[Rfam]
RNA sequence: CUGCGGUGCAUUGUAGUUGCAUUGCAUGUGAUAUCGGUGAUGUGCAAUGUGCCUGCAGUGCAACACAG
Numbered sequence: 001c002u003g004c005g006g007u008g009c010a011u012u013g014u015a016g017u018u019g020c021a022u023u024g025c026a027u028g029u030g031a032u033a034u035c036g037g038u039g040a041u042g043u044g045c046a047a048u049g050u051g052c053c054u055g056c057a058g059u060g061c062a063a064c065a066c067a068g
Base pairs, nucleotide, nucleotide: 001068002067003066006064007062008061009060010059011058012057013056014055015054016053019050021048022047023046024045025044026043027042